[Rfam]
RNA sequence: UGUCUCCUCCACCCUCCUCCUUUGGUGGAUUUAGCCCGAGAUCGCAAGAUCUCGGGCUUUUUUUU
Numbered sequence: 001u002g003u004c005u006c007c008u009c010c011a012c013c014c015u016c017c018u019c020c021u022u023u024g025g026u027g028g029a030u031u032u033a034g035c036c037c038g039a040g041a042u043c044g045c046a047a048g049a050u051c052u053c054g055g056g057c058u059u060u061u062u063u064u065u
Stems, first nucleotide, its partner, number of pairs: 008029006033058008

Shown here is a 65-nucleotide RNA sequence from Bordetella petrii, a member of the family "Betaproteobacteria toxic small RNA". The family's consensus secondary structure was predicted with WAR. Rfam's curators put it in the seed alignment. Overexpression in amino aid rich medium attenuates growth, suggesting role in repressing amino acid intake and metabolism.